Rfam assigns this 109-nucleotide RNA from Sorghum bicolor to the family "MIR5565 microRNA precursor family".
Rfam 15.1 lists 3,346 matches to the family in 5 species.
Its family is annotated with RISC complex and miRNA-mediated post-transcriptional gene silencing in the Gene Ontology.
RNA sequence: GUAGUCGGAUUCACAUCGAUCCACAUGUGUUGAGGUGGAUUGGAGUGAAACUUGAACUAAAUUCCACCCCAAUCCACACCAACACACAUGGAUUGAAAUGAAUACGACA
Numbered sequence: 001g002u003a004g005u006c007g008g009a010u011u012c013a014c015a016u017c018g019a020u021c022c023a024c025a026u027g028u029g030u031u032g033a034g035g036u037g038g039a040u041u042g043g044a045g046u047g048a049a050a051c052u053u054g055a056a057c058u059a060a061a062u063u064c065c066a067c068c069c070c071a072a073u074c075c076a077c078a079c080c081a082a083c084a085c086a087c088a089u090g091g092a093u094u095g096a097a098a099u100g101a102a103u104a105c106g107a108c109a
Stems, first nucleotide, its partner, number of pairs: 004108004009103005016096008026086007035077009045067003